[Rfam]
RNA: Glycine riboswitch aptamer
Organism: Erythrobacter litoralis
RNA sequence: GACGGACCAGCGGGAGAGUUCGCGCUUCGCGGCGCGACGCCGAAGGAGCAACCGCCCCGGAAUCUCUCAGGCCCACGGACCGCUGGACCGGC
Numbered sequence: 001g002a003c004g005g006a007c008c009a010g011c012g013g014g015a016g017a018g019u020u021c022g023c024g025c026u027u028c029g030c031g032g033c034g035c036g037a038c039g040c041c042g043a044a045g046g047a048g049c050a051a052c053c054g055c056c057c058c059g060g061a062a063u064c065u066c067u068c069a070g071g072c073c074c075a076c077g078g079a080c081c082g083c084u085g086g087a088c089c090g091g092c
Base pairs, nucleotide, nucleotide: 007086008085009084010083011082012081013080020037021036022035023034039072040071041070042068043067046066047065048064052060053059